The record is a 73-nucleotide sequence from Aerophototrophica crusticola, which matches "Makes More Granules Regulator RNA (mmgR)" in Rfam. Its Rfam clan is "suhB sRNA clan". The family's RNA type in Rfam is small RNA. Gene Ontology terms of the family: response to nitrogen compound, protein binding and DNA-templated transcription, termination. Taxonomically the source falls in Aerophototrophica (Bacteria, Pseudomonadati, Alphaproteobacteria, Rhodospirillales).
RNA sequence: CUGCAGUGCCCGUUUCGGGCGUUUCCUCCCUAAACUCAGGCCGCUCACCCGAGCGGCCUUUUUUCUGCCAGAG
Numbered sequence: 001c002u003g004c005a006g007u008g009c010c011c012g013u014u015u016c017g018g019g020c021g022u023u024u025c026c027u028c029c030c031u032a033a034a035c036u037c038a039g040g041c042c043g044c045u046c047a048c049c050c051g052a053g054c055g056g057c058c059u060u061u062u063u064u065c066u067g068c069c070a071g072a073g
Stems, first nucleotide, its partner, number of pairs: 008020004039058008